[Rfam]
Nucleotides: 102
Stems, first nucleotide, its partner, number of pairs: 002094003006090002009086001011084001012082001016075004021070002025068009037055003
Number, partner (000 for none) and nucleotide at each position: 001000a002094g003093g004092a005000a006090c007089c008000a009086c010000c011084g012082c013000a014000g015000u016075g017074g018073c019072g020000c021070g022069g023000c024000c025068a026067g027066c028065u029064c030063u031062g032061g033060a034000g035000c036000c037055c038054u039053g040000g041000a042000g043000u044000c045000a046000g047000c048000u049000c050000c051000u052000g053039c054038a055037g056000u057000a058000a059000c060033u061032c062031c063030a064029g065028a066027g067026c068025u069022c070021u071000c072019u073018g074017u075016c076000u077000g078000c079000a080000g081000g082012g083000c084011c085000u086009g087000g088000a089007g090006g091000c092004u093003c094002c095000g096000g097000g098000c099000g100000g101000g102000g
Shown here is a 102-nucleotide RNA from Vulpes vulpes, a member of the family "mir-8834 microRNA precursor family". A search with the family's covariance model found it, with a score of 71 bits. Rfam links the family to the GO terms miRNA-mediated post-transcriptional gene silencing and RISC complex.